The record is a 297-nucleotide RNA sequence from Galemys pyrenaicus, which matches "7SK RNA" in Rfam. For this family Rfam cites "Transcription: surprising role for an elusive small nuclear RNA" (Blencowe, Curr Biol, 2002). Rfam classes the family as a non-coding RNA gene. NCBI's taxonomy places the organism under Eukaryota, Bilateria, Eutheria, Boreoeutheria, Galemys. The match comes from Rfam's covariance-model search (277 bits). 7SK was discovered as an abundant small nuclear RNA in the mid-70s but a possible function has only recently been suggested. Two independent studies have found that 7SK RNA binds the CDK9/cyclin T complex (known as elongation factor P-TEFb). P-TEFb activates transcription by phosphorylating the C-terminal domain of RNA polymerase II. This process is negatively regulated by the 7SK RNP. The secondary structure of 7SK RNA shown here was proposed by Wasserman and Steitz on the basis of chemical modification and enzymatic cleavage experiments. This family contains a number of annotated pseudogenes and 7SK derived repeats.

[Rfam]
RNA sequence: GGAUGUGAGGGCGAUCUGGCUGCGACAUCUGUCACCCCAUUGAUCGCCAGGGUUGAUUCGGCUGAUCUGGCUGGCUAGGCGGGUGUCCCCUUCCUCCCUCACCGCUCCAUGUGCGUCCCUCCCGAAGCUGCGUGCUCGGUCGCAGAGGACGGCCUUCCCCGAAUAGAGACGGACCGGUCUUCGGUCGAGGGUAUACGAGUAGCUGCGCUCCCCUGCUAGAACCUCCAAACAAGCUCUCAAGGUCCAUUUAUAUAAUGAAUUGACUCAUUUUUCAUUUUGUCAAAUAUAUGAAGCCCU
Number, nucleotide and partner (000 for none) at each position: 001g108002g107003a106004u000005g102006u101007g100008a099009g098010g097011g096012c000013g093014a092015u000016c000017u000018g090019g089020c000021u000022g000023c000024g087025a086026c085027a084028u083029c082030u081031g080032u079033c078034a000035c074036c073037c070038c069039a068040u000041u000042g067043a066044u065045c064046g062047c061048c060049a000050g000051g000052g000053u000054u000055g000056a000057u000058u000059c000060g048061g047062c046063u000064g045065a044066u043067c042068u039069g038070g037071c000072u000073g036074g035075c000076u000077a000078g033079g032080c031081g030082g029083g028084u027085g026086u025087c024088c000089c019090c018091u000092u014093c013094c000095u000096c011097c010098c009099u008100c007101a006102c005103c000104g000105c000106u003107c002108c001109a000110u000111g000112u000113g000114c000115g000116u172117c171118c000119c168120u167121c166122c139123c138124g137125a136126a000127g135128c134129u000130g000131c000132g000133u000134g128135c127136u125137c124138g123139g122140u162141c161142g160143c000144a000145g000146a000147g158148g157149a156150c000151g000152g000153c000154c000155u000156u149157c148158c147159c000160c142161g141162a140163a000164u000165a000166g121167a120168g119169a000170c000171g117172g116173a000174c000175c000176g000177g000178u000179c000180u000181u000182c000183g000184g000185u000186c000187g000188a000189g000190g000191g000192u000193a000194u000195a000196c000197g000198a000199g000200u000201a000202g269203c000204u267205g000206c000207g000208c000209u263210c000211c262212c000213c000214u259215g000216c257217u000218a000219g000220a000221a000222c000223c000224u255225c000226c000227a000228a000229a251230c000231a249232a248233g247234c000235u000236c000237u000238c000239a000240a000241g000242g000243u000244c000245c000246a000247u233248u232249u231250a000251u229252a000253u000254a000255a224256u000257g216258a000259a214260u000261u000262g211263a209264c000265u000266c000267a204268u000269u202270u000271u000272u000273c000274a000275u000276u000277u000278u000279g000280u000281c000282a000283a000284a000285u000286a000287u000288a000289u000290g000291a000292a000293g000294c000295c000296c000297u000